This 105-nucleotide RNA sequence from Artemisia annua belongs to the Rfam family "Small nucleolar RNA Z107/R87". Gene Ontology terms of the family: RNA processing and nucleolus. NCBI's taxonomy places the organism under Eukaryota, Tracheophyta, Euphyllophyta, Gunneridae, Artemisia. The literature on the family includes a 2001 paper in J Mol Biol by Barneche et al., "Identification of 66 box C/D snoRNAs in Arabidopsis thaliana: extensive gene duplications generated multiple isoforms predicting new ribosomal RNA 2'-O-methylation sites".
[Rfam]
RNA sequence: GAUCGCAAUGAAGACUUGGAAAAUUCAAGCUCAACAGACCGUAUUGCAGUCUUAUCAUCUUAUUGAUUUGUUUGCAUGUCGAUAUUCCCGCUGAACUGAGCGAUC
Dot-bracket structure: ((((((.............................................................................................))))))